[Rfam]
RNA sequence: AAUUGAGAUAGAGGAUGCGUCUUAUGAUGAGUAACGCUGCCGAUGUGAUACGGAACAGGCAGCGCGGAAGGCAUGGACGCCGAAGACGGGCAGAACCGUGUGGCUGCCUUGUCUGGGCGGACGGACUAAGAGUCGUCCGACUGUCGCACUUCAUUUCGUAGAGAGAGAUGACUGCGGAGCGCUAUCCUGGAU
Numbered sequence: 001a002a003u004u005g006a007g008a009u010a011g012a013g014g015a016u017g018c019g020u021c022u023u024a025u026g027a028u029g030a031g032u033a034a035c036g037c038u039g040c041c042g043a044u045g046u047g048a049u050a051c052g053g054a055a056c057a058g059g060c061a062g063c064g065c066g067g068a069a070g071g072c073a074u075g076g077a078c079g080c081c082g083a084a085g086a087c088g089g090g091c092a093g094a095a096c097c098g099u100g101u102g103g104c105u106g107c108c109u110u111g112u113c114u115g116g117g118c119g120g121a122c123g124g125a126c127u128a129a130g131a132g133u134c135g136u137c138c139g140a141c142u143g144u145c146g147c148a149c150u151u152c153a154u155u156u157c158g159u160a161g162a163g164a165g166a167g168a169u170g171a172c173u174g175c176g177g178a179g180c181g182c183u184a185u186c187c188u189g190g191a192u
Stems, first nucleotide, its partner, number of pairs: 007186005017080006024074003035064007084114004088109006115142002118139007144177005150171001

The family of this 192-nucleotide RNA from Eubacterium pyruvativorans is "Lysine riboswitch aptamer". The base pairs follow the family's consensus structure, which is taken from published work.